The family of this 173-nucleotide RNA sequence from Lactobacillus psittaci is "Lysine riboswitch aptamer". From the family's description: Riboswitches are metabolite binding domains within certain messenger RNAs that serve as precision sensors for their corresponding targets. Taxonomically the source falls in Lactobacillus psittaci (Bacteria, Bacillati, Bacilli, Lactobacillales). The match comes from Rfam's covariance-model search (80 bits).

RNA sequence: CAAUGCAAUAGAGGUUGCGGCAAGUCACAAAAAUUCUGGAGUUCACGUAGACUUUGAAGGAAUCGUAAGGAUUGUCGCCGAAAUGGAUAGAUAGACGUGCUAUCUAUCUGUUGGGCUACAAGAGCAUAUCUUGUAGACUGUCCUGGUAGUCCCCAGGGAGCGCUAUCUGAUUU
Numbered sequence: 001c002a003a004u005g006c007a008a009u010a011g012a013g014g015u016u017g018c019g020g021c022a023a024g025u026c027a028c029a030a031a032a033a034u035u036c037u038g039g040a041g042u043u044c045a046c047g048u049a050g051a052c053u054u055u056g057a058a059g060g061a062a063u064c065g066u067a068a069g070g071a072u073u074g075u076c077g078c079c080g081a082a083a084u085g086g087a088u089a090g091a092u093a094g095a096c097g098u099g100c101u102a103u104c105u106a107u108c109u110g111u112u113g114g115g116c117u118a119c120a121a122g123a124g125c126a127u128a129u130c131u132u133g134u135a136g137a138c139u140g141u142c143c144u145g146g147u148a149g150u151c152c153c154c155a156g157g158g159a160g161c162g163c164u165a166u167c168u169g170a171u172u173u
Stems, first nucleotide, its partner, number of pairs: 008166004017078007025070001032063001034062004082112012113139002116136008141158006